[Rfam]
RNA sequence: GGGAGUGGAUGGGGCCUGGUGGCUUCUGCAGUCUUCAAAACUGUCCGUUGGGCGCUAACCCGUCCAAGGUGGGUUCGAUUCCUACACGCUCCC
Numbered sequence: 001g002g003g004a005g006u007g008g009a010u011g012g013g014g015c016c017u018g019g020u021g022g023c024u025u026c027u028g029c030a031g032u033c034u035u036c037a038a039a040a041c042u043g044u045c046c047g048u049u050g051g052g053c054g055c056u057a058a059c060c061c062g063u064c065c066a067a068g069g070u071g072g073g074u075u076c077g078a079u080u081c082c083u084a085c086a087c088g089c090u091c092c093c
Base pairs, nucleotide, nucleotide: 001093002092003091004090005089006088007087008085011026012025013024014023015022016021028044029043030042031041032040048067049066050065051064052063070084071083072082073081